[Rfam]
Nucleotides: 094
Stems, first nucleotide, its partner, number of pairs: 005084002008081003018075007026067004031062002034055001036053006
Number, partner (000 for none) and nucleotide at each position: 001000g002000u003000a004000u005084a006083u007000g008081u009080g010079u011000a012000u013000g014000u015000g016000g017000a018075u019074g020073g021072u022071g023070u024069u025000c026067a027066a028065c029064a030000c031062c032061a033000a034055g035000g036053a037052c038051a039050g040049g041048u042000c043000u044000g045000u046000u047000u048041g049040c050039c051038u052037g053036u054000g055034u056000g057000u058000g059000g060000a061032u062031g063000a064029u065028g066027u067026u068000a069024a070023g071022c072021a073020c074019c075018a076000a077000g078000g079010a080009c081008a082000g083006g084005u085000c086000u087000g088000c089000u090000a091000c092000u093000g094000u

The record is a 94-nucleotide RNA sequence from Branchiostoma floridae, which matches "mir-2060 microRNA precursor family" in Rfam. A search with the family's covariance model found it, with a score of 82 bits. The family's consensus secondary structure was predicted with RNAalifold. NCBI's taxonomy places the organism under Eukaryota, Opisthokonta, Leptocardii, Branchiostomatidae, Branchiostoma.